The family of this 55-nucleotide sequence is "nhaA-I RNA". The sequence is in the family's curated seed alignment. Rfam describes the family as follows. Acidobacteria, Alphaproteobacteria, Betaproteobacteria and Gammaproteobacteria, Verrucomicrobia, cand. division NC10.

RNA sequence: GGGUGUCCUAUAAAUGGUUAUAGGUCAGGUAAUAAGCUAGGUCGGGCCGCCAGCU
Numbered sequence: 001g002g003g004u005g006u007c008c009u010a011u012a013a014a015u016g017g018u019u020a021u022a023g024g025u026c027a028g029g030u031a032a033u034a035a036g037c038u039a040g041g042u043c044g045g046g047c048c049g050c051c052a053g054c055u
Stems, first nucleotide, its partner, number of pairs: 005026001007024006035055004040051003